[Rfam]
RNA sequence: AUUCCUCACCCUUACUCCAGAUCUCUUUCAUUUAUAGAGAUCCCUGGCAUUGACUGAGGAUAGAUUAGAAAGCCUUUAUCCCUCUCUUGGAGGAGUCUGCAUCCUUCAGGGGCCUACGAUUUGGGCAAACAGU
Numbered sequence: 001a002u003u004c005c006u007c008a009c010c011c012u013u014a015c016u017c018c019a020g021a022u023c024u025c026u027u028u029c030a031u032u033u034a035u036a037g038a039g040a041u042c043c044c045u046g047g048c049a050u051u052g053a054c055u056g057a058g059g060a061u062a063g064a065u066u067a068g069a070a071a072g073c074c075u076u077u078a079u080c081c082c083u084c085u086c087u088u089g090g091a092g093g094a095g096u097c098u099g100c101a102u103c104c105u106u107c108a109g110g111g112g113c114c115u116a117c118g119a120u121u122u123g124g125g126c127a128a129a130c131a132g133u
Base pairs, nucleotide, nucleotide: 003060004059005058006057007056008055011052017047018046019045020044022040023039024038025037026036072126073125075123084112085111086110087109088108089107091106092105093104
This 133-nucleotide sequence from Microcaecilia unicolor belongs to the Rfam family "Small nucleolar RNA SNORA49".
Pairs were carried over by alignment from the consensus structure, which was predicted with RNAalifold.
The snoRNA ACA49 has no identified RNA target. NB genomic sequence 1-nt different from published.
It scores 84 bits against the family's covariance model.
It is annotated as an H/ACA-box small nucleolar RNA.